[Rfam]
RNA sequence: UGGUACCCAACGUGGGGCUCGGAUACGGGGGAAUUCGUGAGGGAAGAGGUGUUUAAUUAUUCAGCCGAACAAAGCAGAAGUCAGUUCAAGAAGGAUCGCCUUGGGAGCCUGCGUGCCACUCUUAAAGGUACAGUAAUGCCUGACUAUGGGAAAAGAAUUAAGUAAGCAUAAAGUUUUUGUUAAGUAAUUAAAAGAAGCUUUAAAUACACGGGAGUAAAGGUUAAGAGUAAUGAUCUUUUUAGGUUUUUUGACCUUAUUAAGGACACCUGUCCGU
Numbered sequence: 001u002g003g004u005a006c007c008c009a010a011c012g013u014g015g016g017g018c019u020c021g022g023a024u025a026c027g028g029g030g031g032a033a034u035u036c037g038u039g040a041g042g043g044a045a046g047a048g049g050u051g052u053u054u055a056a057u058u059a060u061u062c063a064g065c066c067g068a069a070c071a072a073a074g075c076a077g078a079a080g081u082c083a084g085u086u087c088a089a090g091a092a093g094g095a096u097c098g099c100c101u102u103g104g105g106a107g108c109c110u111g112c113g114u115g116c117c118a119c120u121c122u123u124a125a126a127g128g129u130a131c132a133g134u135a136a137u138g139c140c141u142g143a144c145u146a147u148g149g150g151a152a153a154a155g156a157a158u159u160a161a162g163u164a165a166g167c168a169u170a171a172a173g174u175u176u177u178u179g180u181u182a183a184g185u186a187a188u189u190a191a192a193a194g195a196a197g198c199u200u201u202a203a204a205u206a207c208a209c210g211g212g213a214g215u216a217a218a219g220g221u222u223a224a225g226a227g228u229a230a231u232g233a234u235c236u237u238u239u240u241a242g243g244u245u246u247u248u249u250g251a252c253c254u255u256a257u258u259a260a261g262g263a264c265a266c267c268u269g270u271c272c273g274u
Stems, first nucleotide, its partner, number of pairs: 006031003012026003036049001038047001085127002088123001093119001100115001102113001104112001134154001137151001139150004159202003162198002209250003212246004218236006259274001261272004
A member of the RNA family "Mason-Pfizer monkey virus packaging signal" from Sciurus carolinensis, 274 nucleotides long. Rfam describes the family as follows. This family represents a group of sequences that are related to the Mason-Pfizer monkey virus (MPMV) packaging signal. The packaging signal is located in the 5' UTR and is required for specific RNA encapsidation. The family's RNA type in Rfam is cis-regulatory element. Lineage of the source: Eukaryota > Opisthokonta > Gnathostomata > Sciurinae > Sciurus.